[Rfam]
RNA: Glycine riboswitch aptamer
RNA sequence: AUGAAGGUAUAGGGAGAGAUUACUGCAUUUCAGGUAACGCCGAAGGAGUAAGCCGGUAUAACGGUGAAUCUCUCAGGCAAAAGGACCUGUACUGGACG
Numbered sequence: 001a002u003g004a005a006g007g008u009a010u011a012g013g014g015a016g017a018g019a020u021u022a023c024u025g026c027a028u029u030u031c032a033g034g035u036a037a038c039g040c041c042g043a044a045g046g047a048g049u050a051a052g053c054c055g056g057u058a059u060a061a062c063g064g065u066g067a068a069u070c071u072c073u074c075a076g077g078c079a080a081a082a083g084g085a086c087c088u089g090u091a092c093u094g095g096a097c098g
Base pairs, nucleotide, nucleotide: 006093007092008091009090010089011088012087013086020037021036022035023034039078040077041076042074043073046072047071048070052065053064054063055062